[Rfam]
Nucleotides: 059
Stems, first nucleotide, its partner, number of pairs: 004054009018041004024035001026034001
Number, partner (000 for none) and nucleotide at each position: 001000a002000c003000u004054u005053g006052g007051a008050u009049a010048a011047g012046g013000a014000a015000c016000u017000c018041u019040a020039u021038u022000u023000g024035g025000u026034g027000g028000u029000u030000u031000c032000u033000g034026u035024c036000a037000u038021a039020g040019u041018a042000a043000g044000g045000a046012c047011c048010u049009u050008a051007u052006c053005c054004a055000u056000a057000g058000a059000g
Shown here is a 59-nucleotide RNA sequence from Phascolarctos cinereus, a member of the family "mir-7386 microRNA precursor family". Taxonomically the source falls in Phascolarctos (Eukaryota, Craniata, Teleostomi, Theria). Gene Ontology terms of the family: miRNA-mediated post-transcriptional gene silencing and RISC complex. Pairs were carried over by alignment from the consensus structure, which was predicted with RNAalifold. The match comes from Rfam's covariance-model search (44 bits).